[Rfam]
RNA sequence: UGGGCUGGUCGAAAGACUCAGGCCCACCGAGCGGCGGGGAAUUUCCCC
Numbered sequence: 001u002g003g004g005c006u007g008g009u010c011g012a013a014a015g016a017c018u019c020a021g022g023c024c025c026a027c028c029g030a031g032c033g034g035c036g037g038g039g040a041a042u043u044u045c046c047c048c
Stems, first nucleotide, its partner, number of pairs: 001026006007018004